The record is an 85-nucleotide RNA sequence from Bordetella bronchiseptica, which matches "Glycine riboswitch aptamer" in Rfam. Pairs were carried over by alignment from the consensus structure.
[Rfam]
Nucleotides: 085
Stems, first nucleotide, its partner, number of pairs: 006084003010080004020034004036069003039065002043063003049057002
Number, partner (000 for none) and nucleotide at each position: 001000a002000c003000g004000u005000g006084c007083a008082g009000u010080u011079c012078g013077g014000g015000a016000g017000a018000g019000a020034c021033c022032g023031u024000c025000c026000a027000g028000c029000g030000g031023a032022c033021g034020g035000c036069g037068c038067c039065g040064a041000c042000g043063g044062a045061g046000c047000a048000a049057c050056c051000a052000c053000c054000c055000c056050g057049g058000a059000a060000a061045c062044u063043c064040u065039c066000a067038g068037g069036c070000a071000a072000a073000a074000g075000g076000a077013c078012c079011g080010a081000c082008c083007u084006g085000c